[Rfam]
RNA sequence: ACCGCUUCCGUGGGAGAGCGAAGCAGGCCACCGCCCGCUUCCGCCGAAGGCGCAGACUCCCGUAAUCGCUCAGGCAGCAAGGACCGCGGAAGCAUU
Numbered sequence: 001a002c003c004g005c006u007u008c009c010g011u012g013g014g015a016g017a018g019c020g021a022a023g024c025a026g027g028c029c030a031c032c033g034c035c036c037g038c039u040u041c042c043g044c045c046g047a048a049g050g051c052g053c054a055g056a057c058u059c060c061c062g063u064a065a066u067c068g069c070u071c072a073g074g075c076a077g078c079a080a081g082g083a084c085c086g087c088g089g090a091a092g093c094a095u096u
Stems, first nucleotide, its partner, number of pairs: 006091008020041004043075003046071002050069003056063002

Annotation
The record is a 96-nucleotide sequence from Azoarcus indigens, which matches "Glycine riboswitch aptamer" in Rfam. It scores 55 bits against the family's covariance model. The literature on the family includes a 2004 paper in Science by Mandal et al., "A glycine-dependent riboswitch that uses cooperative binding to control gene expression".